[Rfam]
RNA sequence: UAAGCGGACGUGUGAACGUCCGUUGAACUGUCAGAAGUCAGCAGAAGCCAUAGUACCAACUUGAUCUAGACAAGCUGGGAAGGGC
Numbered sequence: 001u002a003a004g005c006g007g008a009c010g011u012g013u014g015a016a017c018g019u020c021c022g023u024u025g026a027a028c029u030g031u032c033a034g035a036a037g038u039c040a041g042c043a044g045a046a047g048c049c050a051u052a053g054u055a056c057c058a059a060c061u062u063g064a065u066c067u068a069g070a071c072a073a074g075c076u077g078g079g080a081a082g083g084g085c
Base pairs, nucleotide, nucleotide: 001025002024004023005022006021007020008019009018010017011016038045039044047085048084049083056078057077058076060074061073